The record is a 71-nucleotide part of an RNA from Thermoplasmatales archaeon SCGC AB-539-C06, which matches "Archaeal large subunit ribosomal RNA" in Rfam. Pairs were carried over by alignment from the consensus structure, which is taken from published work.

RNA sequence: GAUAAGGCAUGAAAGCGACGAAACUACUUUUGGUAGUGGAGCAGUGUCUUAUCGUGCGUUUCGAAUAAUGG
Numbered sequence: 001g002a003u004a005a006g007g008c009a010u011g012a013a014a015g016c017g018a019c020g021a022a023a024c025u026a027c028u029u030u031u032g033g034u035a036g037u038g039g040a041g042c043a044g045u046g047u048c049u050u051a052u053c054g055u056g057c058g059u060u061u062c063g064a065a066u067a068a069u070g071g
Stems, first nucleotide, its partner, number of pairs: 001053010015042002023037006057070003
Dot-bracket structure: ((((((((((....((......((((((...))))))...)).))))))))))...(((........))).